[Rfam]
RNA sequence: AUUAACUUUAAUUAAAUCACACACAUUUCGUCACAUGUUCCGGGGUGCUUGAGUAAUCAUUCAUACCAAGUCGGAUUCAUGGGAAAUGUGGAGGCCUAAC
Numbered sequence: 001a002u003u004a005a006c007u008u009u010a011a012u013u014a015a016a017u018c019a020c021a022c023a024c025a026u027u028u029c030g031u032c033a034c035a036u037g038u039u040c041c042g043g044g045g046u047g048c049u050u051g052a053g054u055a056a057u058c059a060u061u062c063a064u065a066c067c068a069a070g071u072c073g074g075a076u077u078c079a080u081g082g083g084a085a086a087u088g089u090g091g092a093g094g095c096c097u098a099a100c
Stems, first nucleotide, its partner, number of pairs: 022090008034081004039075004047071005
Dot-bracket structure: .....................((((((((....((((.((((....(((((...............)))))))))..)))).))))))))..........
The record is a 100-nucleotide RNA sequence from Vibrio mediterranei, which matches "t44 RNA" in Rfam. The organism belongs to Vibrio mediterranei, within Bacteria. Rfam's curators write: This family consists of a number of bacterial RNA genes of between 135 and 170 bases in length. The t44 gene has been identified in several species of enteric bacteria but homologs have also been identified in Pseudomonas and Coxiella species. Rfam's curators put it in the seed alignment.